[Rfam]
RNA sequence: GCGUAAUGAUGAUGAAUUAUUCAAAUCUCAAAUGUCUCAGAUGAUGAAUUGAAUACCUCCUACUCAUUCUGA
Numbered sequence: 001g002c003g004u005a006a007u008g009a010u011g012a013u014g015a016a017u018u019a020u021u022c023a024a025a026u027c028u029c030a031a032a033u034g035u036c037u038c039a040g041a042u043g044a045u046g047a048a049u050u051g052a053a054u055a056c057c058u059c060c061u062a063c064u065c066a067u068u069c070u071g072a
Base pairs, nucleotide, nucleotide: 006067007066008065009064028047
RNA: Small nucleolar RNA Z105